Rfam assigns this 133-nucleotide sequence from Listeria booriae to the family "Ribosomal protein L20 leader". The literature on the family includes a 1994 paper in Prog Nucleic Acid Res Mol Biol by Zengel and Lindahl, "Diverse mechanisms for regulating ribosomal protein synthesis in Escherichia coli". The base pairs follow the family's consensus structure, which was predicted with CMfinder. Taxonomically the source falls in Listeria (Bacteria, Bacillati, Bacillota, Bacilli).
[Rfam]
RNA sequence: ACAAGAAAGAAGGAGCAUCCCGCUUCUCGCCUCGUGAAAUCUAUUUUUGCAGGCAAAGAAUUGGAAUUAUGGUUCACUUAUGUGAAUUUUCUGAUGUGCGGGUUUGUAACGAAACCGGCGCUUUUUUCAUGCG
Numbered sequence: 001a002c003a004a005g006a007a008a009g010a011a012g013g014a015g016c017a018u019c020c021c022g023c024u025u026c027u028c029g030c031c032u033c034g035u036g037a038a039a040u041c042u043a044u045u046u047u048u049g050c051a052g053g054c055a056a057a058g059a060a061u062u063g064g065a066a067u068u069a070u071g072g073u074u075c076a077c078u079u080a081u082g083u084g085a086a087u088u089u090u091c092u093g094a095u096g097u098g099c100g101g102g103u104u105u106g107u108a109a110c111g112a113a114a115c116c117g118g119c120g121c122u123u124u125u126u127u128c129a130u131g132c133g
Base pairs, nucleotide, nucleotide: 011027012026013025014024015023016022029054030053031052034048036046037045038044097120098119099118101116102115103114104113105112